[Rfam]
Rfam assigns this 88-nucleotide RNA from Candidatus Planktophila sulfonica to the family "SAM riboswitch aptamer (S box leader)". The organism belongs to Candidatus Planktophila, within Bacteria. Rfam's curators write: The SAM riboswitch is found upstream of a number of genes which code for proteins involved in methionine or cysteine biosynthesis in Gram-positive bacteria. A search with the family's covariance model found it, with a score of 60 bits. The family's consensus secondary structure is taken from published work.
RNA sequence: CUCACAUCAAGAGCGACUGAGAGAACUAGCUCAGUGAAGUCGCAGCAACCGAUAACCAAAACGGUGCUAAUGCUAGUAACGAUGAGGG
Numbered sequence: 001c002u003c004a005c006a007u008c009a010a011g012a013g014c015g016a017c018u019g020a021g022a023g024a025a026c027u028a029g030c031u032c033a034g035u036g037a038a039g040u041c042g043c044a045g046c047a048a049c050c051g052a053u054a055a056c057c058a059a060a061a062c063g064g065u066g067c068u069a070a071u072g073c074u075a076g077u078a079a080c081g082a083u084g085a086g087g088g
Stems, first nucleotide, its partner, number of pairs: 001088003005084004013043005021032003026076004044068004049064002053058001072080001